[Rfam]
RNA sequence: CGCGGGACGACCCGCGCCGACGUUUCGAACGGGGACGGCCCCA
Dot-bracket structure: ((((((....))))))..............((((....)))).
Numbered sequence: 001c002g003c004g005g006g007a008c009g010a011c012c013c014g015c016g017c018c019g020a021c022g023u024u025u026c027g028a029a030c031g032g033g034g035a036c037g038g039c040c041c042c043a
Stems, first nucleotide, its partner, number of pairs: 001016006031042004

Shown here is a 43-nucleotide RNA sequence from Aquamicrobium sp. LC103, a member of the family "Guanidine-II riboswitch aptamer (mini-ykkC)". Gene Ontology term of the family: regulation of gene expression. A search with the family's covariance model found it, with a score of 41 bits.